[Rfam]
Nucleotides: 067
Base pairs, nucleotide, nucleotide: 001053002052003051004050005049006048007047008046011021012020027043028042029041030040031039034067035066036065037064
Number, partner (000 for none) and nucleotide at each position: 001053g002052c003051c004050a005049g006048c007047c008046a009000u010000a011021g012020g013000c014000u015000g016000a017000u018000c019000c020012c021011c022000g023000a024000a025000a026000a027043c028042c029041u030040g031039c032000u033000u034067c035066c036065c037064u038000g039031g040030c041029g042028g043027g044000c045000u046008u047007g048006g049005c050004u051003g052002g053001c054000a055000u056000c057000u058000u059000u060000c061000u062000u063000a064037a065036g066035g067034g
The family of this 67-nucleotide RNA sequence is "int-alpA RNA". The base pairs follow the family's consensus structure, which is taken from published work. About the family: Acidobacteria (1 example), Planctomycetes (1 example), Proteobacteria. By type it is a small RNA.